A member of the RNA family "ASpks TB sRNA" from Streptomyces genisteinicus, 69 nucleotides long. The match comes from Rfam's covariance-model search (64 bits). On this family, see Arnvig and Young, Mol Microbiol 2009: "Identification of small RNAs in Mycobacterium tuberculosis".

[Rfam]
RNA sequence: CUUCACCGACCCCAGGUACAGCGGCUCCUCACGGUCCUGCCCGUAGGUGGCAAGGAGCGCCUGCGCCUC
Numbered sequence: 001c002u003u004c005a006c007c008g009a010c011c012c013c014a015g016g017u018a019c020a021g022c023g024g025c026u027c028c029u030c031a032c033g034g035u036c037c038u039g040c041c042c043g044u045a046g047g048u049g050g051c052a053a054g055g056a057g058c059g060c061c062u063g064c065g066c067c068u069c
Stems, first nucleotide, its partner, number of pairs: 014026002017023001028065001030063001032059002037054002041050003
Dot-bracket structure: .............((.(.....).)).(.(.((...((..(((....)))..))...))...).)....
The family's RNA type in Rfam is antisense RNA.